RNA sequence: GGUCCGAUGCCACGUCGCCGGUAGCCCAGAGCAUUGACCGGCGAUGCUAUGAUUGGACCGAAAUAAAUUCCAUGUUUCGCUUGCUCAUAGGAACCUGUUGAUCUUAUUUAUUAUGAUCUACGGAGCCGUUUUCGGCGAUUACAUAC
Numbered sequence: 001g002g003u004c005c006g007a008u009g010c011c012a013c014g015u016c017g018c019c020g021g022u023a024g025c026c027c028a029g030a031g032c033a034u035u036g037a038c039c040g041g042c043g044a045u046g047c048u049a050u051g052a053u054u055g056g057a058c059c060g061a062a063a064u065a066a067a068u069u070c071c072a073u074g075u076u077u078c079g080c081u082u083g084c085u086c087a088u089a090g091g092a093a094c095c096u097g098u099u100g101a102u103c104u105u106a107u108u109u110a111u112u113a114u115g116a117u118c119u120a121c122g123g124a125g126c127c128g129u130u131u132u133c134g135g136c137g138a139u140u141a142c143a144u145a146c
Stems, first nucleotide, its partner, number of pairs: 002058007009050001013046006020039003024032002077138005090127002095123003100118004
Small nucleolar RNA snoR2/U65: a 146-nucleotide RNA from Hibiscus trionum.
Rfam 15.1 lists 908 matches to the family in 230 species.
On this family, see Shaw et al., J Cell Sci 1998: "Localization and processing from a polycistronic precursor of novel snoRNAs in maize".
Taxonomically the source falls in Hibiscus (Eukaryota, Pentapetalae, malvids, Malvales).
The match comes from Rfam's covariance-model search (145 bits).
Gene Ontology terms of the family: nucleolus and RNA processing.